[Rfam]
RNA sequence: CACACGCGGGCGAAGGAGUUUAGCUCUCCUUGCCGGUGCCAAAUUUAUUUGGUCACUGCCCGCGGCGGACUAACCGGACUAAGGAUGCCU
Numbered sequence: 001c002a003c004a005c006g007c008g009g010g011c012g013a014a015g016g017a018g019u020u021u022a023g024c025u026c027u028c029c030u031u032g033c034c035g036g037u038g039c040c041a042a043a044u045u046u047a048u049u050u051g052g053u054c055a056c057u058g059c060c061c062g063c064g065g066c067g068g069a070c071u072a073a074c075c076g077g078a079c080u081a082a083g084g085a086u087g088c089c090u
Stems, first nucleotide, its partner, number of pairs: 001067001003065001005064007015029004039052005
Shown here is a 90-nucleotide sequence from Elstera litoralis, a member of the family "rpsB sRNA". A reference for the family is Meyer et al. (2009), "Identification of candidate structured RNAs in the marine organism 'Candidatus Pelagibacter ubique'", BMC Genomics.